RNA: MIR1520 microRNA precursor family
Organism: Glycine max
RNA sequence: UUCUUAUCAGGACUGUCACGUGCCAUGUUGUGAUUGACCAAUGACACCAAUAAUGCAUUUCAUCUUCCAUGAUUUGACAUCCAAUCAGAAUAUGACACGUGACAGUCAUCAUCC
Dot-bracket structure: ..............((((.((..(((.((.(.(((...............................................))).).)).)))..)).))))...........